[Rfam]
RNA sequence: ACCAAGAGUAGAAGCGUUCAGUCGGCCGUGCGGGCCGGCGGGUCAUUGCUCUUGGA
Numbered sequence: 001a002c003c004a005a006g007a008g009u010a011g012a013a014g015c016g017u018u019c020a021g022u023c024g025g026c027c028g029u030g031c032g033g034g035c036c037g038g039c040g041g042g043u044c045a046u047u048g049c050u051c052u053u054g055g056a
Stems, first nucleotide, its partner, number of pairs: 005052006015041001019042001021039007

A member of the RNA family "Xanthine riboswitch aptamer (NMT1 RNA)" from Verticiella sediminum, 56 nucleotides long. Taxonomically the source falls in Verticiella (Bacteria, Pseudomonadati, Betaproteobacteria, Burkholderiales). Gene Ontology term of the family: purine nucleobase binding.